This 75-nucleotide RNA from Caenorhabditis auriculariae belongs to the Rfam family "mir-87 microRNA precursor family". The family's consensus secondary structure was predicted with RNAalifold. It scores 63 bits against the family's covariance model.
RNA sequence: CACGCGUCGCCUGAACCUUUCGUCUCAACCUCGAUUUUGAUGCGUAGGUGAGCAAAGUUUCAGGUGUGCGAGUGA
Numbered sequence: 001c002a003c004g005c006g007u008c009g010c011c012u013g014a015a016c017c018u019u020u021c022g023u024c025u026c027a028a029c030c031u032c033g034a035u036u037u038u039g040a041u042g043c044g045u046a047g048g049u050g051a052g053c054a055a056a057g058u059u060u061c062a063g064g065u066g067u068g069c070g071a072g073u074g075a
Base pairs, nucleotide, nucleotide: 002073003072005070006069007068008066009065010064011063012062013061014060017057018056019055020054024052025051026050027049029048030047031046